[Rfam]
RNA: Metazoan signal recognition particle RNA
RNA sequence: GCCGGGCGUGGUGGCGCACGCCUGUAAUCCAAGCUGCCGGGAGGCUGAGACCGAGGGACCGCUUGCGCUCGGGAGUUCUGCACAACAGUGGGCUGUGUUGAUCGGGGGUCCGCAGCGUCUUCGGCACCAAUAUGGUGAUCCCGGGGGAGGUUGGGCUCACCAGGUUGUCUAAAGAGGGGUGUACCAACCCAGGUCGGAAACGGAGCAGGUGAAAGCCCCCGUGCUGAUGCGUGUUGGGACAGCUCCUGUGAGCAGCAGCUGUCGUGCAGCCCGGGCAACAGAGUGGGACGCGGUCUUUU
Numbered sequence: 001g002c003c004g005g006g007c008g009u010g011g012u013g014g015c016g017c018a019c020g021c022c023u024g025u026a027a028u029c030c031a032a033g034c035u036g037c038c039g040g041g042a043g044g045c046u047g048a049g050a051c052c053g054a055g056g057g058a059c060c061g062c063u064u065g066c067g068c069u070c071g072g073g074a075g076u077u078c079u080g081c082a083c084a085a086c087a088g089u090g091g092g093c094u095g096u097g098u099u100g101a102u103c104g105g106g107g108g109u110c111c112g113c114a115g116c117g118u119c120u121u122c123g124g125c126a127c128c129a130a131u132a133u134g135g136u137g138a139u140c141c142c143g144g145g146g147g148a149g150g151u152u153g154g155g156c157u158c159a160c161c162a163g164g165u166u167g168u169c170u171a172a173a174g175a176g177g178g179g180u181g182u183a184c185c186a187a188c189c190c191a192g193g194u195c196g197g198a199a200a201c202g203g204a205g206c207a208g209g210u211g212a213a214a215g216c217c218c219c220c221g222u223g224c225u226g227a228u229g230c231g232u233g234u235u236g237g238g239a240c241a242g243c244u245c246c247u248g249u250g251a252g253c254a255g256c257a258g259c260u261g262u263c264g265u266g267c268a269g270c271c272c273g274g275g276c277a278a279c280a281g282a283g284u285g286g287g288a289c290g291c292g293g294u295c296u297u298u299u
Stems, first nucleotide, its partner, number of pairs: 001045003004023007028042003047297007055289001059286006067276007078269006085262005092256005098250001103248007110238002113236005119229001121227007128167004133162006140155005168174001176219005187210003194203003